[Rfam]
Shown here is a 69-nucleotide RNA sequence from Crossiella cryophila, a member of the family "ASpks TB sRNA". The family's consensus secondary structure is taken from published work. Rfam classes the family as an antisense RNA.
RNA sequence: CUUGAACGAGCCCAGCAGCAGCGGGUUCGGCCGGUCCUGCCCGUAGGUGGCCAGCAGGGCCUGCGCUUC
Numbered sequence: 001c002u003u004g005a006a007c008g009a010g011c012c013c014a015g016c017a018g019c020a021g022c023g024g025g026u027u028c029g030g031c032c033g034g035u036c037c038u039g040c041c042c043g044u045a046g047g048u049g050g051c052c053a054g055c056a057g058g059g060c061c062u063g064c065g066c067u068u069c
Stems, first nucleotide, its partner, number of pairs: 014026001016024001030064002032059001037054003041050003